[Rfam]
Overview:
A member of the RNA family "PrrF RNA" from Pseudomonas sp. ABC1, 145 nucleotides long. The family's RNA type in Rfam is small RNA. Its family is annotated with sRNA-mediated gene silencing in the Gene Ontology. Lineage of the source: Bacteria > Pseudomonadati > Pseudomonadota > Pseudomonadales > Pseudomonas. From the family's description: PrrF RNA is a small RNA involved in iron homeostasis and is found exclusively in Pseudomonas species. The literature on the family includes a 2004 paper in Proc Natl Acad Sci U S A by Wilderman et al., "Identification of tandem duplicate regulatory small RNAs in Pseudomonas aeruginosa involved in iron homeostasis".
RNA sequence: UUGACCAGCUAAUGAUAAUUGUUAUUAUUGCCACAACUGGUCGCGAGAUCAGCCGAUAAGCUGAAAGCCAGGCAUCGGUCUUUCAGGUUAUCUCCUCAUCAGGCUAAUCACGGUUUUGACCCGGCUCUUGCCGGGUCUUUUUUUG
Numbered sequence: 001u002u003g004a005c006c007a008g009c010u011a012a013u014g015a016u017a018a019u020u021g022u023u024a025u026u027a028u029u030g031c032c033a034c035a036a037c038u039g040g041u042c043g044c045g046a047g048a049u050c051a052g053c054c055g056a057u058a059a060g061c062u063g064a065a066a067g068c069c070a071g072g073c074a075u076c077g078g079u080c081u082u083u084c085a086g087g088u089u090a091u092c093u094c095c096u097c098a099u100c101a102g103g104c105u106a107a108u109c110a111c112g113g114u115u116u117u118g119a120c121c122c123g124g125c126u127c128u129u130g131c132c133g134g135g136u137c138u139u140u141u142u143u144u145g
Base pairs, nucleotide, nucleotide: 034055037052038051039050040049041048042047061086062085063084064083065082066081067080069077094103095102096101118137119136120135121134122133123132124131125130